A member of the RNA family "mir-515 microRNA precursor family" from Saimiri boliviensis, 87 nucleotides long.
The family is grouped with related families in Rfam's "mir-290 clan".
[Rfam]
RNA sequence: UCUCAAACAGUAACACUCUAAAGGGAAGGCCUUUCUUUUUUUUCAGACAACAGAAAGCACUUCCCUUUGGAGGGUCACAGCGUGAGA
Numbered sequence: 001u002c003u004c005a006a007a008c009a010g011u012a013a014c015a016c017u018c019u020a021a022a023g024g025g026a027a028g029g030c031c032u033u034u035c036u037u038u039u040u041u042u043u044c045a046g047a048c049a050a051c052a053g054a055a056a057g058c059a060c061u062u063c064c065c066u067u068u069g070g071a072g073g074g075u076c077a078c079a080g081c082g083u084g085a086g087a
Base pairs, nucleotide, nucleotide: 001087002086003085004084005083008080010078011077013075014074016072017071018070020068021067022066023065024064025063026062027061028060031057032056033055034054035053038052